[Rfam]
A member of the RNA family "manA RNA", 207 nucleotides long. The family's RNA type in Rfam is cis-regulatory element. About the family: manA RNA has been located in 5'UTR regions of genes of mannose or fructose metabolism. Has been proposed as a cis-regulatory element and as a riboswitch candidate for his complex secondary structure.
RNA sequence: UGCUAGUUGACGGACUAGUACGGUAGUGACGGAAAGCCCCUCCUCCGGGGCAACGUGCAAUAUUCCCUGUCGUGGGGCAAUCACACCUAGAGAUAGGAGUCGUUGUAAAGGACACUAACGAGUCUAAUAUUGGCGGUUUCGGUAAUUCUGCAAUUAUGUAGGGGGACAGGAAACUUCCGGGUAUACAUUAGCCCCGGCUACCACCAA
Numbered sequence: 001u002g003c004u005a006g007u008u009g010a011c012g013g014a015c016u017a018g019u020a021c022g023g024u025a026g027u028g029a030c031g032g033a034a035a036g037c038c039c040c041u042c043c044u045c046c047g048g049g050g051c052a053a054c055g056u057g058c059a060a061u062a063u064u065c066c067c068u069g070u071c072g073u074g075g076g077g078c079a080a081u082c083a084c085a086c087c088u089a090g091a092g093a094u095a096g097g098a099g100u101c102g103u104u105g106u107a108a109a110g111g112a113c114a115c116u117a118a119c120g121a122g123u124c125u126a127a128u129a130u131u132g133g134c135g136g137u138u139u140c141g142g143u144a145a146u147u148c149u150g151c152a153a154u155u156a157u158g159u160a161g162g163g164g165g166a167c168a169g170g171a172a173a174c175u176u177c178c179g180g181g182u183a184u185a186c187a188u189u190a191g192c193c194c195c196g197g198c199u200a201c202c203a204c205c206a207a
Base pairs, nucleotide, nucleotide: 001020002019003018004017005016006015007014008013022202023201024200025199026198029056030055037050038049039048040047059131060130061129062128063127064126066077067076068075070121071120072119073118078105079104080103081102110125111124112123135175136174137173138172139171140170148164149163151161156188157187158186159185177197178196179195180194181193